This 83-nucleotide sequence from Merluccius polli belongs to the Rfam family "mir-26 microRNA precursor family".
RNA sequence: CUUGGGUCUGUUUCAAGUAAUCCAGGAUAGGCUUGUUGAAACCAGGGGAAGGCCUAUUCGGGGUGACUUGGUUCAGAAACAAG
Numbered sequence: 001c002u003u004g005g006g007u008c009u010g011u012u013u014c015a016a017g018u019a020a021u022c023c024a025g026g027a028u029a030g031g032c033u034u035g036u037u038g039a040a041a042c043c044a045g046g047g048g049a050a051g052g053c054c055u056a057u058u059c060g061g062g063g064u065g066a067c068u069u070g071g072u073u074c075a076g077a078a079a080c081a082a083g
Stems, first nucleotide, its partner, number of pairs: 002082003007077004014070005020064003025059009
A search with the family's covariance model found it, with a score of 62 bits. The family's consensus secondary structure was predicted with RNAalifold. Lineage of the source: Eukaryota > Bilateria > Deuterostomia > Chordata > Merluccius. The literature on the family includes a 2001 paper in Science by Lagos-Quintana et al., "Identification of novel genes coding for small expressed RNAs".